[Rfam]
This 105-nucleotide RNA sequence from Staphylococcus saprophyticus belongs to the Rfam family "Staphylococcus sRNA71 small RNA".
The sequence is in the family's curated seed alignment.
sRNA71 is a Bacterial small RNA discovered by RNA-seq analysis of the multiresistant Staphylococcus aureus strain ST239 grown in the presence of antibiotics and found throughout the Staphylococcus genus. It is thought to be a trans-encoded small RNA expressed in diverse conditions and media. The 5' position is uncertain, this record adds 12 bases to the initial sRNA71 sequence to include additional conserved nucleotides.
Lineage of the source: Bacteria > Bacillati > Bacilli > Staphylococcaceae > Staphylococcus.
The literature on the family includes a 2013 paper in Antimicrob Agents Chemother by Howden et al., "Analysis of the small RNA transcriptional response in multidrug-resistant Staphylococcus aureus after antimicrobial exposure".
RNA sequence: AAUCAUAUGCUAUAUUAAGAAUGUAGUUAAUACUAACUACUAGUCUUUUAUAUUCAUGAACAUAUUACUCUUUGAGAGCGACACAUCAGUGUCGCUCUUUUUUUU
Numbered sequence: 001a002a003u004c005a006u007a008u009g010c011u012a013u014a015u016u017a018a019g020a021a022u023g024u025a026g027u028u029a030a031u032a033c034u035a036a037c038u039a040c041u042a043g044u045c046u047u048u049u050a051u052a053u054u055c056a057u058g059a060a061c062a063u064a065u066u067a068c069u070c071u072u073u074g075a076g077a078g079c080g081a082c083a084c085a086u087c088a089g090u091g092u093c094g095c096u097c098u099u100u101u102u103u104u105u
Stems, first nucleotide, its partner, number of pairs: 003059003008056002016050005023040007076097008